[Rfam]
RNA sequence: GUAAUCCACUAGGGGUGCCCUCGGGCUGAGAUAGGUUUCCUAAUCCCUUUGAACCUGAUCUGGUUAACACCAGCGUAGGAAAGUGGCUACUGUUUUUG
Numbered sequence: 001g002u003a004a005u006c007c008a009c010u011a012g013g014g015g016u017g018c019c020c021u022c023g024g025g026c027u028g029a030g031a032u033a034g035g036u037u038u039c040c041u042a043a044u045c046c047c048u049u050u051g052a053a054c055c056u057g058a059u060c061u062g063g064u065u066a067a068c069a070c071c072a073g074c075g076u077a078g079g080a081a082a083g084u085g086g087c088u089a090c091u092g093u094u095u096u097u098g
Stems, first nucleotide, its partner, number of pairs: 006086005011048004016042001017026003033041003054079004060073004
The record is a 98-nucleotide RNA from Paenalkalicoccus suaedae, which matches "TPP riboswitch aptamer (THI element)" in Rfam. The match comes from Rfam's covariance-model search (83 bits). Rfam's curators write: Vitamin B(1) in its active form thiamin pyrophosphate (TPP) is an essential coenzyme that is synthesised by coupling of pyrimidine and thiazole moieties in bacteria. Gene Ontology term of the family: thiamine pyrophosphate binding. The base pairs follow the family's consensus structure, which is taken from published work. The literature on the family includes a 2002 paper in J Biol Chem by Rodionov et al., "Comparative genomics of thiamin biosynthesis in procaryotes. New genes and regulatory mechanisms".